[Rfam]
RNA sequence: AUUCCAGAGGUGGUGUGAUACCACACCACUCCGGCAGCAAGCGAAGGUGUCAUUGACACCCGUGGUAUGGUCCCCCGGCCAUACCGCGAAUUUUUUUU
Numbered sequence: 001a002u003u004c005c006a007g008a009g010g011u012g013g014u015g016u017g018a019u020a021c022c023a024c025a026c027c028a029c030u031c032c033g034g035c036a037g038c039a040a041g042c043g044a045a046g047g048u049g050u051c052a053u054u055g056a057c058a059c060c061c062g063u064g065g066u067a068u069g070g071u072c073c074c075c076c077g078g079c080c081a082u083a084c085c086g087c088g089a090a091u092u093u094u095u096u097u098u
Stems, first nucleotide, its partner, number of pairs: 009030009034042002046060006061088012

A member of the RNA family "Translational regulator of tfoXVC" from Vibrio gelatinilyticus, 98 nucleotides long. It is annotated as a small RNA. On this family, see Yamamoto et al., J Bacteriol 2011: "Identification of a chitin-induced small RNA that regulates translation of the tfoX gene, encoding a positive regulator of natural competence in Vibrio cholerae". A search with the family's covariance model found it, with a score of 104 bits. Lineage of the source: Bacteria > Pseudomonadota > Vibrionales > Vibrionaceae > Vibrio. The base pairs follow the family's consensus structure, which was predicted with WAR.